[Rfam]
RNA sequence: UAUAAUAAGACCAUCAAUGGAUAUAGCGCGAGACUGCUUGCAGGCAGAGCGAUAUAUCCAUUAGAUGGUCAAACAGACAUGAGCAAGUAAUAGUUCAGCGAAGCUGAACUUAUGGAUUGCGAAUGGAUGUUAUGGUUUCGGAAGUUCGAAGAACGGAGAAACCAUAAUUAUUAUG
Numbered sequence: 001u002a003u004a005a006u007a008a009g010a011c012c013a014u015c016a017a018u019g020g021a022u023a024u025a026g027c028g029c030g031a032g033a034c035u036g037c038u039u040g041c042a043g044g045c046a047g048a049g050c051g052a053u054a055u056a057u058c059c060a061u062u063a064g065a066u067g068g069u070c071a072a073a074c075a076g077a078c079a080u081g082a083g084c085a086a087g088u089a090a091u092a093g094u095u096c097a098g099c100g101a102a103g104c105u106g107a108a109c110u111u112a113u114g115g116a117u118u119g120c121g122a123a124u125g126g127a128u129g130u131u132a133u134g135g136u137u138u139c140g141g142a143a144g145u146u147c148g149a150a151g152a153a154c155g156g157a158g159a160a161a162c163c164a165u166a167a168u169u170a171u172u173a174u175g
Base pairs, nucleotide, nucleotide: 001175002174003173004172005171006170007169010069011068012067013066016062017061018060019059020058021057022056023055024054025053027051028050029049032045034043035042036041073130074129075128078125079124080123083120084119085118086117090113091112092110093109094108095107096106097105098104099103133164134163135162136161137160138159139158144154145153146152147151
Dot-bracket structure: (((((((..((((..((((((((((.(((..(.(((....))).)...))).))))))))))...))))...(((..(((..((((...((((((((((...)))))))).))...))))..)))..)))..(((((((....((((...))))...)))))))....)))))))
Record summary: Clostridiales-1 RNA: a 175-nucleotide RNA from Firmicutes bacterium CAG:882. Taxonomically the source falls in Bacillota (Bacteria, Bacillati).